[Rfam]
RNA sequence: AAAGUUCAAUACAGGGAAGAUAUGGCGAAUCACUCUGACCCCGAGUCAUGCGUCGUACAUCGUGAGGUGUGCGGCGAAGCGUUGACAGGGGACACCGACAGGCCAGCCAUUGAGCCGCGAAAUCAAGGAAUCGGGAUGCCGACGACGUUGACUGACUCGGAAGGCAAUAUGGAGCAUGGCGAUAAUCGCAAGUCAUGUUUCGAUCCCGCGCGGCCGGAGACCC
Numbered sequence: 001a002a003a004g005u006u007c008a009a010u011a012c013a014g015g016g017a018a019g020a021u022a023u024g025g026c027g028a029a030u031c032a033c034u035c036u037g038a039c040c041c042c043g044a045g046u047c048a049u050g051c052g053u054c055g056u057a058c059a060u061c062g063u064g065a066g067g068u069g070u071g072c073g074g075c076g077a078a079g080c081g082u083u084g085a086c087a088g089g090g091g092a093c094a095c096c097g098a099c100a101g102g103c104c105a106g107c108c109a110u111u112g113a114g115c116c117g118c119g120a121a122a123u124c125a126a127g128g129a130a131u132c133g134g135g136a137u138g139c140c141g142a143c144g145a146c147g148u149u150g151a152c153u154g155a156c157u158c159g160g161a162a163g164g165c166a167a168u169a170u171g172g173a174g175c176a177u178g179g180c181g182a183u184a185a186u187c188g189c190a191a192g193u194c195a196u197g198u199u200u201c202g203a204u205c206c207c208g209c210g211c212g213g214c215c216g217g218a219g220a221c222c223c
Stems, first nucleotide, its partner, number of pairs: 012037005019031003023191001025189002039091004045086004049081002051076011111217001112215001114214006132208006138165003143159003170202011
Group II catalytic intron D1-D4-6: a 223-nucleotide RNA from Massilia psychrophila. The literature on the family includes a 2001 paper in Trends Genet by Bonen and Vogel, "The ins and outs of group II introns". The source organism's lineage runs through Bacteria, Pseudomonadati, Betaproteobacteria, Oxalobacteraceae and Massilia. Gene Ontology term of the family: Group II intron splicing. Pairs were carried over by alignment from the consensus structure. A search with the family's covariance model found it, with a score of 186 bits.